This 103-nucleotide RNA sequence from Paramaledivibacter caminithermalis belongs to the Rfam family "pan motif". By type it is a cis-regulatory element.
RNA sequence: CGGAUAGUAUCUUUUAGUGAACUAUACCCUUAUUUAUUAAACAUUAAAAACUUGAUAAGUUAUUUAUCUGCUCUGAGCCUAUAAUAUGGACCGAGACAGAAGG
Numbered sequence: 001c002g003g004a005u006a007g008u009a010u011c012u013u014u015u016a017g018u019g020a021a022c023u024a025u026a027c028c029c030u031u032a033u034u035u036a037u038u039a040a041a042c043a044u045u046a047a048a049a050a051c052u053u054g055a056u057a058a059g060u061u062a063u064u065u066a067u068c069u070g071c072u073c074u075g076a077g078c079c080u081a082u083a084a085u086a087u088g089g090a091c092c093g094a095g096a097c098a099g100a101a102g103g
Stems, first nucleotide, its partner, number of pairs: 002028002004025005010020002068099003071095003075091001078089002
The base pairs follow the family's consensus structure, which is taken from published work.